The record is a 90-nucleotide RNA from Caldicellulosiruptor saccharolyticus, which matches "c-di-GMP-I riboswitch aptamer" in Rfam. Rfam's curators put it in the seed alignment. Pairs were carried over by alignment from the consensus structure, which is taken from published work. GEMM was predicted in a large-scale screen for bacterial structured RNA regulatory elements.
[Rfam]
RNA sequence: AUAUCGAAAGGGCAAACCUGUCGAAAGGCAGGGGCGCAAAGCCAUGGGCCUGUCGGAAGUAAAACUUCCUAUGGUUGCCAGGCUGCCGAA
Numbered sequence: 001a002u003a004u005c006g007a008a009a010g011g012g013c014a015a016a017c018c019u020g021u022c023g024a025a026a027g028g029c030a031g032g033g034g035c036g037c038a039a040a041g042c043c044a045u046g047g048g049c050c051u052g053u054c055g056g057a058a059g060u061a062a063a064a065c066u067u068c069c070u071a072u073g074g075u076u077g078c079c080a081g082g083c084u085g086c087c088g089a090a
Stems, first nucleotide, its partner, number of pairs: 012037002017032006040084004045080003048075003055069004